RNA sequence: AAAUUAUAAUUCGUUUUAAUAUUAUUGAAGGGAUGCCUUCUUAAACAUCCAUAAAUACUCGGCUUGGAUCCUCUAUCCGACUGAAGAGGACCUUAAUUGGUCCUAGAACGGCCUGAGGUAGAGGGGUUUUAGUCGGUAGGUCCGAGGAUUUCUUCCUCGGGAUUCCGACACUACCCAGUCGUACGGACGGCUGGGUGUCUUUUGAAGAAUUCCCCUCUUCCCCGAAA
Numbered sequence: 001a002a003a004u005u006a007u008a009a010u011u012c013g014u015u016u017u018a019a020u021a022u023u024a025u026u027g028a029a030g031g032g033a034u035g036c037c038u039u040c041u042u043a044a045a046c047a048u049c050c051a052u053a054a055a056u057a058c059u060c061g062g063c064u065u066g067g068a069u070c071c072u073c074u075a076u077c078c079g080a081c082u083g084a085a086g087a088g089g090a091c092c093u094u095a096a097u098u099g100g101u102c103c104u105a106g107a108a109c110g111g112c113c114u115g116a117g118g119u120a121g122a123g124g125g126g127u128u129u130u131a132g133u134c135g136g137u138a139g140g141u142c143c144g145a146g147g148a149u150u151u152c153u154u155c156c157u158c159g160g161g162a163u164u165c166c167g168a169c170a171c172u173a174c175c176c177a178g179u180c181g182u183a184c185g186g187a188c189g190g191c192u193g194g195g196u197g198u199c200u201u202u203u204g205a206a207g208a209a210u211u212c213c214c215c216u217c218u219u220c221c222c223c224g225a226a227a
Base pairs, nucleotide, nucleotide: 038090039089040088041087042086097225098224099223100222117221118220120218121217123214124213125212132169133168134167135166136165141161142160143159144158145157146156147155148154171197173196174195175194176193177192